[Rfam]
RNA sequence: UGAAAUGGAAUCAGCGUUUGAACAUACGAUUUUAUGUUGAUUCCAUCUCAUG
Number, nucleotide and partner (000 for none) at each position: 001u050002g049003a048004a000005a046006u045007g044008g043009a042010a041011u040012c039013a038014g037015c036016g035017u034018u029019u028020g027021a000022a000023c000024a000025u000026a000027c020028g019029a018030u000031u000032u000033u000034a017035u016036g015037u014038u013039g012040a011041u010042u009043c008044c007045a006046u005047c000048u003049c002050a001051u000052g000
A member of the RNA family "MIR1886 microRNA precursor family" from Solanum lycopersicum, 52 nucleotides long.